Notes: Rfam assigns this 93-nucleotide RNA from Microbacterium pygmaeum to the family "Glycine riboswitch aptamer". A search with the family's covariance model found it, with a score of 60 bits.

[Rfam]
RNA sequence: ACGAUCCGGUCGGGAGAGCCUCGGCGCACGCCGAGCACCGAAGGAGCAAGCCUCCCCGCCAAUCUCUCAGGUAUCGCGUACCGCCCGGAUCCG
Numbered sequence: 001a002c003g004a005u006c007c008g009g010u011c012g013g014g015a016g017a018g019c020c021u022c023g024g025c026g027c028a029c030g031c032c033g034a035g036c037a038c039c040g041a042a043g044g045a046g047c048a049a050g051c052c053u054c055c056c057c058g059c060c061a062a063u064c065u066c067u068c069a070g071g072u073a074u075c076g077c078g079u080a081c082c083g084c085c086c087g088g089a090u091c092c093g
Stems, first nucleotide, its partner, number of pairs: 006088004011083003020035004037072003040068002044066003050059002
The source organism's lineage runs through Bacteria, Bacillati, Actinomycetota, Microbacteriaceae and Microbacterium. From the family's description: This family represents the bacterial glycine riboswitch. Gene Ontology term of the family: glycine biosynthetic process. The pairing is the family consensus, mapped onto this sequence.